[Rfam]
RNA sequence: CACCCGGGACGUCCCGGGUGCAUUCUUGGUUUGUGGGGGACGUCCCCC
Numbered sequence: 001c002a003c004c005c006g007g008g009a010c011g012u013c014c015c016g017g018g019u020g021c022a023u024u025c026u027u028g029g030u031u032u033g034u035g036g037g038g039g040a041c042g043u044c045c046c047c048c
Stems, first nucleotide, its partner, number of pairs: 001020008035048005
RNA: Guanidine-II riboswitch aptamer (mini-ykkC)